[Rfam]
RNA: Group II catalytic intron D1-D4-2
Organism: Prevotella sp. P5-92
RNA sequence: GAGAGAAGGUCUCUCGGUGUCGGUGUGCAGGCACUGGCAUCAAACCCUCUGCAAGCUGCUGCAGUCGGAAACGUUGCGGUGGUGAGCGUUGCAGAGAGGUACGUAUUACUGAGCUGAACGCAAGU
Dot-bracket structure: (((((.....)))))((((((.((((....)))).))))))....(..((((((((.(((.((((.......)))).))).)).....))))))....((...(.............).))..).